The family of this 98-nucleotide sequence from Clostridium amylolyticum is "Purine riboswitch aptamer". The base pairs follow the family's consensus structure, which is taken from published work. Rfam's curators write: Riboswitches are metabolite binding domains within certain messenger RNAs that serve as precision sensors for their corresponding targets. Allosteric rearrangement of mRNA structure is mediated by ligand binding, and this results in modulation of gene expression. A class of riboswitches that selectively recognises guanine and becomes saturated at concentrations as low as 5 nM. In Bacillus subtilis, this mRNA motif is located on at least five separate transcriptional units that together encode 17 genes that are mostly involved in purine transport and purine nucleotide biosynthesis. NCBI's taxonomy places the organism under Bacteria, Bacillota, Eubacteriales, Clostridiaceae, Clostridium. Rfam links the family to the GO term purine nucleobase biosynthetic process.

RNA sequence: UAAUAUGGGUAUUUAACCACUCGUAUAUCCCCUGAAUAUGGCAGGGAGUCUCUACCGGAAACCGUAAAUUUCCGACUAUGGGUGAAACUUUACUAUGC
Numbered sequence: 001u002a003a004u005a006u007g008g009g010u011a012u013u014u015a016a017c018c019a020c021u022c023g024u025a026u027a028u029c030c031c032c033u034g035a036a037u038a039u040g041g042c043a044g045g046g047a048g049u050c051u052c053u054a055c056c057g058g059a060a061a062c063c064g065u066a067a068a069u070u071u072c073c074g075a076c077u078a079u080g081g082g083u084g085a086a087a088c089u090u091u092a093c094u095a096u097g098c
Base pairs, nucleotide, nucleotide: 018084019083020082021081022080023079024078025077030046031045032044033043034042056074057073058072059071060070061069